[Rfam]
This 87-nucleotide RNA sequence from Aotus nancymaae belongs to the Rfam family "mir-515 microRNA precursor family". Pairs were carried over by alignment from the consensus structure, which was predicted with RNAalifold. The family has 181 seed sequences and 1,056 matches in Rfam 15.1. Its family is annotated with miRNA-mediated post-transcriptional gene silencing and RISC complex in the Gene Ontology. Taxonomically the source falls in Aotus (Eukaryota, Metazoa, Teleostomi, Sarcopterygii). The match comes from Rfam's covariance-model search (81 bits).
Nucleotides: 087
Base pairs, nucleotide, nucleotide: 001087002086003085004084005083007081008080010078011077012076013075017071018070020068021067022066023065024064025063026062027061028060031057032056033055034054038052039051
Number, partner (000 for none) and nucleotide at each position: 001087u002086c003085u004084c005083a006000u007081g008080c009000u010078g011077u012076g013075a014000c015000c016000c017071u018070c019000u020068a021067a022066a023065g024064g025063g026062a027061g028060g029000a030000g031057c032056u033055u034054u035000c036000u037000g038052u039051u040000g041000u042000c043000u044000g045000a046000a047000a048000g049000g050000a051039a052038a053000c054034a055033a056032a057031g058000g059000c060028c061027u062026u063025c064024c065023c066022u067021u068020u069000a070018g071017a072000c073000c074000a075013u076012u077011a078010c079000c080008g081007u082000u083005u084004g085003a086002g087001a